[Rfam]
RNA: Rhizobiales sRNA Atu_At1
Organism: Mesorhizobium sp. LSHC420B00
RNA sequence: UCAUGAGCCGUGUUAACCGGACGAGACAGGGAUGACGAAUGCAGAGGUUUUUCCGGUUUCACUCUGCAGCCGACGAAGAGGCAGCCGAGCGUCUUACCUGUCCGGCUC
Numbered sequence: 001u002c003a004u005g006a007g008c009c010g011u012g013u014u015a016a017c018c019g020g021a022c023g024a025g026a027c028a029g030g031g032a033u034g035a036c037g038a039a040u041g042c043a044g045a046g047g048u049u050u051u052u053c054c055g056g057u058u059u060c061a062c063u064c065u066g067c068a069g070c071c072g073a074c075g076a077a078g079a080g081g082c083a084g085c086c087g088a089g090c091g092u093c094u095u096a097c098c099u100g101u102c103c104g105g106c107u108c
Stems, first nucleotide, its partner, number of pairs: 006107004011023004025102006034093004040068007069082003